Record summary
The family of this 91-nucleotide RNA is "skipping-rope RNA". Rfam classes the family as a small RNA.
RNA sequence: GAUCUUCGAGGUGAAAAAAGCGUCUUCAUGCGCCGCAUGCCUUGUGCAAUGGGCAAAAGAGAUGUCGGGAGUGACGCUCCGGCCGAAGAUU
Numbered sequence: 001g002a003u004c005u006u007c008g009a010g011g012u013g014a015a016a017a018a019a020g021c022g023u024c025u026u027c028a029u030g031c032g033c034c035g036c037a038u039g040c041c042u043u044g045u046g047c048a049a050u051g052g053g054c055a056a057a058a059g060a061g062a063u064g065u066c067g068g069g070a071g072u073g074a075c076g077c078u079c080c081g082g083c084c085g086a087a088g089a090u091u
Stems, first nucleotide, its partner, number of pairs: 001091008011029005020077005031059001032054003064083005